[Rfam]
Description: A member of the RNA family "Streptomyces RNA 1601" from Streptomyces ruber, 208 nucleotides long. Identified by deep sequencing of transcriptome at the end of exponential growth phase. A reference for the family is Vockenhuber et al. (2011), "Deep sequencing-based identification of small non-coding RNAs in Streptomyces coelicolor", RNA Biol. The source organism's lineage runs through Bacteria, Actinomycetota, Actinomycetes, Kitasatosporales and Streptomyces.

RNA sequence: GAUGACCGGUCGGACACACCUGGUGCCCGGCCCGCAAGUGGAGGCUCCGAACUCCCACCUGACCAUCCUCCGGGACGGCAGGUCACCGGUCAGGCACCCCACCGUUCCGUACGGGCGGUGGAGUCGCCCGAACUGCGCCCCGCGGUGAUCCGCGGCGGUGCUCCGGCAAUGAUGGAGCCCCGCCUGCGUCCCGUCCGGGGCAUUUUUC
Numbered sequence: 001g002a003u004g005a006c007c008g009g010u011c012g013g014a015c016a017c018a019c020c021u022g023g024u025g026c027c028c029g030g031c032c033c034g035c036a037a038g039u040g041g042a043g044g045c046u047c048c049g050a051a052c053u054c055c056c057a058c059c060u061g062a063c064c065a066u067c068c069u070c071c072g073g074g075a076c077g078g079c080a081g082g083u084c085a086c087c088g089g090u091c092a093g094g095c096a097c098c099c100c101a102c103c104g105u106u107c108c109g110u111a112c113g114g115g116c117g118g119u120g121g122a123g124u125c126g127c128c129c130g131a132a133c134u135g136c137g138c139c140c141c142g143c144g145g146u147g148a149u150c151c152g153c154g155g156c157g158g159u160g161c162u163c164c165g166g167c168a169a170u171g172a173u174g175g176a177g178c179c180c181c182g183c184c185u186g187c188g189u190c191c192c193g194u195c196c197g198g199g200g201c202a203u204u205u206u207u208c
Stems, first nucleotide, its partner, number of pairs: 004091006012028002029084004035061002038058004042053002063078002066075003093128003099121008137201006143193003150188001152187002154184005160178005